[Rfam]
RNA sequence: AAGCGGUUGACAAAACGCAAAGCGUUUUGAACGUUGGCUUUGCCAACGGCUCCGAAGGAGUGAGAAAUCUGUCACAACAGAUUUCGAAUAAAAAACCAUUAA
Numbered sequence: 001a002a003g004c005g006g007u008u009g010a011c012a013a014a015a016c017g018c019a020a021a022g023c024g025u026u027u028u029g030a031a032c033g034u035u036g037g038c039u040u041u042g043c044c045a046a047c048g049g050c051u052c053c054g055a056a057g058g059a060g061u062g063a064g065a066a067a068u069c070u071g072u073c074a075c076a077a078c079a080g081a082u083u084u085c086g087a088a089u090a091a092a093a094a095a096c097c098a099u100u101a102a
Base pairs, nucleotide, nucleotide: 011029012028013027014026015025016024017023018022032048033047034046035045036044037043038042049061050060051059052058053057064085065084066083067082068081069080070079071078072077088099089098
Shown here is a 102-nucleotide RNA from Actinobacillus pleuropneumoniae, a member of the family "Aggregatibacter sRNA 22". The family's RNA type in Rfam is small RNA. Pairs were carried over by alignment from the consensus structure, which was predicted with RNAfold. Rfam's curators put it in the seed alignment.